[Rfam]
Shown here is a 379-nucleotide part of an RNA from Candidatus Hodgkinia cicadicola, a member of the family "Bacterial small subunit ribosomal RNA". NCBI's taxonomy places the organism under Bacteria, Alphaproteobacteria, Hyphomicrobiales, Candidatus Hodgkinia, Candidatus Hodgkinia cicadicola.
RNA sequence: GGCGUAAAGGGCGCGUAGGCGGCUUUUUAAGUUGACGGCCAAAGCUUGAAGCUCAACUUCAUGACGCUGUCAAAACUGCUAAGCUAGAGCUGGAUGGGGGCGAGCGGAAUUCCGAGUGUAGAGGUGAAAUUCGUAGAUAUUUGGAAGACCACCAGAGGCGAAGGCGGCUCGCUACGUCUUGCUGACGCUAAUGCGCGAAAGCGUGGGGAGCAAACAGGAUUAGAUACCCUGGUAGUCCACGCCGUAAACGAUGAGUGCUAGCAGUGGGCGCUGCUCGCGCGUUGCGCGUUCGUGCGCGACGCCACAGCGCUAUUGCACAGCUAACGCGUUAAGCACUCCGCCUGGGGAGUACGACCGCAAGGUUAAAACUCAAAGGAAU
Numbered sequence: 001g002g003c004g005u006a007a008a009g010g011g012c013g014c015g016u017a018g019g020c021g022g023c024u025u026u027u028u029a030a031g032u033u034g035a036c037g038g039c040c041a042a043a044g045c046u047u048g049a050a051g052c053u054c055a056a057c058u059u060c061a062u063g064a065c066g067c068u069g070u071c072a073a074a075a076c077u078g079c080u081a082a083g084c085u086a087g088a089g090c091u092g093g094a095u096g097g098g099g100g101c102g103a104g105c106g107g108a109a110u111u112c113c114g115a116g117u118g119u120a121g122a123g124g125u126g127a128a129a130u131u132c133g134u135a136g137a138u139a140u141u142u143g144g145a146a147g148a149c150c151a152c153c154a155g156a157g158g159c160g161a162a163g164g165c166g167g168c169u170c171g172c173u174a175c176g177u178c179u180u181g182c183u184g185a186c187g188c189u190a191a192u193g194c195g196c197g198a199a200a201g202c203g204u205g206g207g208g209a210g211c212a213a214a215c216a217g218g219a220u221u222a223g224a225u226a227c228c229c230u231g232g233u234a235g236u237c238c239a240c241g242c243c244g245u246a247a248a249c250g251a252u253g254a255g256u257g258c259u260a261g262c263a264g265u266g267g268g269c270g271c272u273g274c275u276c277g278c279g280c281g282u283u284g285c286g287c288g289u290u291c292g293u294g295c296g297c298g299a300c301g302c303c304a305c306a307g308c309g310c311u312a313u314u315g316c317a318c319a320g321c322u323a324a325c326g327c328g329u330u331a332a333g334c335a336c337u338c339c340g341c342c343u344g345g346g347g348a349g350u351a352c353g354a355c356c357g358c359a360a361g362g363u364u365a366a367a368a369c370u371c372a373a374a375g376g377a378a379u
Stems, first nucleotide, its partner, number of pairs: 001342003009339001011196004016190001018189003022084004028078001030077002032073008045063001047061005088183003092179005099173007106150002110146008121132003158165002201242006210236002215231004253338006261316006268310006320327002344371003353364004
On this family, see Yusupov et al., Science 2001: "Crystal structure of the ribosome at 5.5 A resolution".
The sequence is in the family's curated seed alignment.